[Rfam]
RNA sequence: CCUGUUGUUCCAUCAACAGUACCCUAGGUGGUCGGCGGUGAGGUAACGAACUGUCUAAUCGCCCACUGACAAUGUAUCCCACAGUCGCAAAACUGCCACACAACCUGUGAGGGAAGGUGGUUCUGCCAGCAUCAAGGCGGAUAGGGGC
Numbered sequence: 001c002c003u004g005u006u007g008u009u010c011c012a013u014c015a016a017c018a019g020u021a022c023c024c025u026a027g028g029u030g031g032u033c034g035g036c037g038g039u040g041a042g043g044u045a046a047c048g049a050a051c052u053g054u055c056u057a058a059u060c061g062c063c064c065a066c067u068g069a070c071a072a073u074g075u076a077u078c079c080c081a082c083a084g085u086c087g088c089a090a091a092a093c094u095g096c097c098a099c100a101c102a103a104c105c106u107g108u109g110a111g112g113g114a115a116g117g118u119g120g121u122u123c124u125g126c127c128a129g130c131a132u133c134a135a136g137g138c139g140g141a142u143a144g145g146g147g148c
Stems, first nucleotide, its partner, number of pairs: 002019006028066004034055006042047001082095004096120004105112002122141006

Shown here is a 148-nucleotide RNA sequence from an Anaerolineales bacterium, a member of the family "Group II catalytic intron D1-D4-7". Taxonomically the source falls in Anaerolineales (Bacteria, Bacillati, Chloroflexota, Anaerolineae). Its family is annotated with Group II intron splicing in the Gene Ontology. About the family: Group II introns are found in rRNA, tRNA and mRNA of organelles in fungi, plants and protists, and also in mRNA in bacteria. A reference for the family is Chu et al. (2001), "Control of branch-site choice by a group II intron", EMBO J. A search with the family's covariance model found it, with a score of 79 bits. The base pairs follow the family's consensus structure.